[Rfam]
RNA sequence: ACCUGCGCUUCCAUUUCACGGUCAGACAGGCCACCGCAGAUCUGGAUAAUACGGUCAGACAGCGUCGAUUUACCGUGGUCGAUGUGAGCUAUGAUUGAAAAGUUACGUAUGUUCUUCAUAUAGUGUAAUUAUUGUGCCUUACGCCCGCCUGAGCAGGCUCUGAGAAGUCGCUGAUCUGAGCUUAACGUCUGUUUAAGUGAAACGCCGCAUUCUACACUACAACGCUGAGGCGAGGAAAUGUUCAUAGAGCAAGGAUAGCGGGAACUGGAAACAACUUUGCAAAGUCGGUGAAACUUUUGCCGGAUGGCGACACAAGCGCCAUCCGGCAAAGCUAUCACUGUUGGGUUUCGACGCGAAUGAGAUCGGGUGGGAGAGCAACGUUCAGAAUGACCGGCUGCCAGGCUUCGCGCUCAGCAAGCUUACGAGAGUAUCCACGGGCAAUCAGGAAUCCGCCCACGCCCCCCAGCACGGCACCGCUUAAUGCCGCAAGGUCGGAACCAAACAGCACCUGGAAUAGCGCCGCGAAGAGAAAGAGCCCCGCCAACGGAGACAUGUAGACCAACAUCGCUGAACCCAGCAGGCUACCCUCGGCAAUACCCAGUUCAACUUUUUGACCGGGCGCUAAGGGUUCGUCGCUGGGCACCACGAUGGUAUGCGUGGUCUGCGGCCCAAGUUUGUUCAGCACGCGGCUCCCGCAUCCGGCCCGCGAAGCACAGCUGCUACAUGAUGCUUUAACAUCACAGCUGACCGUCGCCAGACCAUUUUGCCAGGAGACGACUGUCGCCCACUCUUUAAUCAUUGUGCAGCCCUGAACUUAAUAUUGUCCGCGAUACGC
Number, nucleotide and partner (000 for none) at each position: 001a000002c000003c000004u279005g278006c000007g276008c000009u270010u269011c268012c267013a266014u000015u264016u263017c262018a000019c000020g154021g000022u152023c151024a150025g000026a000027c147028a000029g145030g144031c143032c000033a000034c000035c000036g137037c136038a135039g130040a129041u128042c000043u000044g115045g114046a113047u000048a000049a110050u109051a108052c107053g106054g000055u000056c000057a000058g104059a103060c102061a000062g000063c000064g000065u098066c097067g096068a095069u094070u093071u000072a000073c000074c000075g000076u000077g089078g000079u087080c086081g085082a000083u000084g000085u081086g080087a079088g000089c077090u000091a000092u000093g070094a069095u068096u067097g066098a065099a000100a000101a000102g060103u059104u058105a000106c053107g052108u051109a050110u049111g000112u000113u046114c045115u044116u000117c000118a000119u000120a000121u000122a000123g000124u000125g000126u000127a000128a041129u040130u039131a000132u000133u000134g000135u038136g037137c036138c000139u000140u000141a000142c000143g031144c030145c029146c000147g027148c000149c000150u024151g023152a022153g000154c020155a190156g189157g188158c187159u000160c000161u184162g000163a000164g183165a182166a000167g000168u179169c178170g177171c000172u000173g000174a000175u000176c000177u170178g169179a168180g000181c000182u165183u164184a161185a000186c000187g158188u157189c156190u155191g203192u202193u201194u199195a000196a000197g000198u000199g194200a000201a193202a192203c191204g000205c261206c260207g259208c258209a000210u000211u255212c254213u253214a000215c249216a000217c247218u246219a245220c235221a000222a000223c232224g231225c230226u000227g000228a000229g000230g225231c224232g223233a000234g000235g220236a000237a000238a000239u000240g000241u000242u000243c000244a000245u219246a218247g217248a000249g215250c000251a000252a000253g213254g212255a211256u000257a000258g208259c207260g206261g205262g017263a016264a015265c000266u013267g012268g011269a010270a009271a000272c000273a000274a000275c000276u007277u000278u005279g004280c000281a000282a000283a000284g000285u000286c000287g000288g000289u000290g000291a000292a000293a000294c834295u000296u832297u000298u830299g828300c827301c000302g000303g000304a000305u000306g000307g000308c000309g000310a000311c811312a810313c000314a000315a000316g804317c803318g802319c801320c000321a799322u798323c000324c000325g785326g784327c783328a000329a781330a000331g000332c000333u000334a000335u776336c000337a000338c770339u769340g768341u000342u766343g354344g000345g352346u351347u000348u000349c000350g000351a346352c345353g000354c343355g000356a000357a000358u000359g000360a000361g760362a000363u758364c757365g000366g755367g754368u753369g752370g751371g000372a000373g000374a745375g744376c743377a000378a000379c000380g000381u000382u000383c000384a000385g000386a000387a000388u000389g000390a000391c000392c000393g669394g668395c667396u666397g665398c664399c000400a663401g662402g661403c660404u000405u628406c627407g622408c621409g620410c619411u618412c617413a000414g000415c613416a612417a611418g000419c000420u000421u606422a000423c000424g604425a603426g602427a000428g000429u000430a000431u000432c000433c000434a000435c000436g455437g454438g453439c452440a000441a000442u000443c000444a000445g000446g000447a000448a000449u000450c000451c000452g439453c438454c437455c436456a000457c000458g000459c000460c549461c000462c547463c546464c000465a000466g541467c540468a000469c000470g537471g536472c535473a000474c000475c000476g000477c529478u528479u527480a000481a000482u524483g523484c522485c000486g520487c519488a000489a000490g000491g000492u512493c511494g510495g509496a000497a000498c000499c505500a000501a000502a000503c000504a000505g499506c000507a000508c000509c495510u494511g493512g492513a000514a000515u000516a000517g000518c000519g487520c486521c000522g484523c483524g482525a000526a000527g479528a478529g477530a000531a000532a000533g000534a000535g472536c471537c470538c000539c000540g467541c466542c000543a000544a000545c000546g463547g462548a000549g460550a000551c000552a000553u000554g000555u000556a000557g000558a000559c000560c000561a000562a000563c000564a595565u000566c000567g592568c591569u590570g589571a588572a000573c581574c580575c000576a000577g000578c000579a000580g574581g573582c000583u000584a000585c000586c000587c000588u571589c570590g569591g568592c567593a000594a000595u564596a000597c000598c000599c000600a000601g000602u426603u425604c424605a000606a421607c000608u000609u000610u000611u417612u416613g415614a000615c000616c000617g412618g411619g410620c409621g408622c407623u000624a000625a000626g000627g406628g405629u000630u000631c000632g000633u000634c657635g656636c655637u000638g000639g652640g000641c650642a649643c000644c000645a000646c000647g000648a000649u642650g641651g000652u639653a000654u000655g636656c635657g634658u000659g000660g403661u402662c401663u400664g398665c397666g396667g395668c394669c393670c000671a000672a000673g000674u000675u000676u000677g000678u000679u000680c000681a000682g723683c000684a721685c000686g720687c719688g718689g000690c716691u715692c000693c000694c000695g712696c711697a000698u709699c708700c000701g000702g000703c000704c000705c000706g000707c000708g699709a698710a000711g696712c695713a000714c000715a691716g690717c000718u688719g687720c686721u684722a000723c682724a000725u000726g739727a738728u737729g736730c000731u000732u000733u000734a000735a000736c729737a728738u727739c726740a000741c000742a000743g376744c375745u374746g000747a000748c000749c000750g000751u370752c369753g368754c367755c366756a000757g364758a363759c000760c361761a000762u000763u000764u000765u000766g342767c000768c340769a339770g338771g000772a000773g000774a000775c000776g335777a000778c000779u000780g000781u329782c000783g327784c326785c325786c000787a000788c000789u000790c000791u000792u000793u000794a000795a000796u000797c000798a322799u321800u000801g319802u318803g317804c316805a000806g000807c000808c000809c000810u312811g311812a000813a000814c000815u000816u000817a000818a000819u000820a000821u000822u000823g000824u000825c000826c000827g300828c299829g000830a298831u000832a296833c000834g294835c000

Source information: Shown here is an 835-nucleotide RNA from Citrobacter freundii, a member of the family "antisense RNA of rseC mRNA". Lineage of the source: Bacteria > Pseudomonadati > Gammaproteobacteria > Enterobacteriaceae > Citrobacter freundii. Gene Ontology term of the family: positive regulation of gene expression.